[Rfam]
Description
This 211-nucleotide RNA from Oncorhynchus tshawytscha belongs to the Rfam family "Small nucleolar RNA SNORD17". The family's consensus secondary structure was predicted with RNAalifold. The snoRNA HBI-43 belongs to the C/D family of snoRNAs, guiding 2'O-ribose methylation at position U3797 of the 28S rRNA. Pseudouridylation in position U3797 is predicted to be guided by the H/ACA snoRNA ACA48. NCBI's taxonomy places the organism under Eukaryota, Chordata, Actinopteri, Osteoglossocephalai, Oncorhynchus.

RNA sequence: CUGAAGUGAUGAACUUGUUUAUCCAUUCGCUGAGUGCUGCUGGGCCCUGGCAUUGCAGCCUCCUGUGUCUGUUCUUGACUCAGGGGGUUCAGCGGCCUGACUCGAUGCUUUUGUCCCCAGUGUUCUACUGGGGGUAACUGUUGGGGCAGGUGUGCUGAUGCGUUUGUCAAGGGCCCGGUCACAACUAAGACGAGCUUAAACUCCUGAUCAC
Number, nucleotide and partner (000 for none) at each position: 001c000002u000003g000004a000005a000006g000007u000008g000009a000010u210011g209012a208013a000014c206015u000016u000017g201018u200019u199020u198021a000022u000023c000024c000025a000026u194027u193028c192029g191030c189031u188032g000033a000034g185035u184036g000037c000038u181039g180040c178041u177042g176043g175044g174045c173046c172047c171048u169049g168050g167051c166052a165053u000054u000055g161056c160057a000058g088059c087060c086061u085062c084063c083064u082065g081066u000067g079068u078069c077070u000071g000072u000073u000074c000075u000076u000077g069078a068079c067080u000081c065082a064083g063084g062085g061086g060087g059088u058089u158090c157091a156092g155093c154094g153095g000096c000097c000098u000099g000100a000101c000102u144103c143104g141105a000106u000107g000108c000109u000110u000111u137112u136113g135114u134115c133116c132117c131118c130119a129120g128121u127122g126123u000124u000125c000126u122127a121128c120129u119130g118131g117132g116133g115134g114135u113136a112137a111138c000139u000140g000141u104142u000143g103144g102145g000146g000147c000148a000149g000150g000151u000152g000153u094154g093155c092156u091157g090158a089159u000160g056161c055162g000163u000164u000165u052166g051167u050168c049169a048170a000171g047172g046173g045174c044175c043176c042177g041178g040179u000180c039181a038182c000183a000184a035185c034186u000187a000188a031189g030190a000191c029192g028193a027194g026195c000196u000197u000198a020199a019200a018201c017202u000203c000204c000205u000206g014207a000208u012209c011210a010211c000